The family of this 136-nucleotide sequence from Carlito syrichta is "U8 small nucleolar RNA". For this family Rfam cites "The U8 snoRNA gene family: identification and characterization of distinct, functional U8 genes in Xenopus" (Peculis et al., Gene, 2001). Lineage of the source: Eukaryota > Chordata > Dipnotetrapodomorpha > Amniota > Carlito. Gene Ontology terms of the family: RNA processing and nucleolus. A search with the family's covariance model found it, with a score of 117 bits. The base pairs follow the family's consensus structure, which is taken from published work.

RNA sequence: UCGUCAGGUGGGAUAAUCCUUACCUGUAACUCCUUUUGGAGGGCAGAUAAGAAAAUGAUGAUUGGAGUUUGCAUAAUGCGUGAUUAGUGUCUUUGCGUAAUCAGGUUUUGCAACACCCUGAUUGCUAAAAAAAAAA
Dot-bracket structure: .......................(((...((((....))))..)))............................((.((((....).))).))...(((((((((...........)))))))))...........